[Rfam]
RNA sequence: UGGCAUAUGAUGAGCUACUCGGAUUCCCCUUCGGGGCAUCUUGUAUGAUGCAAAAACCGAGUUUCUGAUGCC
Dot-bracket structure: .((((...............................................................))))
Numbered sequence: 001u002g003g004c005a006u007a008u009g010a011u012g013a014g015c016u017a018c019u020c021g022g023a024u025u026c027c028c029c030u031u032c033g034g035g036g037c038a039u040c041u042u043g044u045a046u047g048a049u050g051c052a053a054a055a056a057c058c059g060a061g062u063u064u065c066u067g068a069u070g071c072c
Stems, first nucleotide, its partner, number of pairs: 002072004
Shown here is a 72-nucleotide RNA from Lactuca sativa, a member of the family "Small nucleolar RNA snoR60". Rfam links the family to the GO terms nucleolus and RNA processing. Pairs were carried over by alignment from the consensus structure, which was predicted with PFOLD. The source organism's lineage runs through Eukaryota, Streptophytina, Mesangiospermae, Cichorieae and Lactuca. By type it is a C/D-box small nucleolar RNA. For this family Rfam cites "Fibrillarin genes encode both a conserved nucleolar protein and a novel small nucleolar RNA involved in ribosomal RNA methylation in Arabidopsis thaliana" (Barneche et al., J Biol Chem, 2000).